This 45-nucleotide RNA sequence from Microbulbifer rhizosphaerae belongs to the Rfam family "Guanidine-II riboswitch aptamer (mini-ykkC)". The match comes from Rfam's covariance-model search (38 bits).
Nucleotides: 045
Stems, first nucleotide, its partner, number of pairs: 001020002004017005034045004
Number, partner (000 for none) and nucleotide at each position: 001020g002019u003000a004017u005016u006015g007014g008013g009000a010000c011000g012000a013008c014007c015006c016005a017004a018000c019002a020001c021000c022000g023000u024000a025000u026000c027000g028000c029000c030000a031000a032000u033000g034045c035044g036043g037042g038000a039000c040000g041000g042037c043036c044035c045034g

About the family: Simpler in structure and has fewer highly conserved nucleotide positions than the ykkC-yxkD leader. Despite this each of its two stem-loop structures directly bind free guanidine. Lineage of the source: Bacteria > Pseudomonadota > Gammaproteobacteria > Cellvibrionales > Microbulbifer.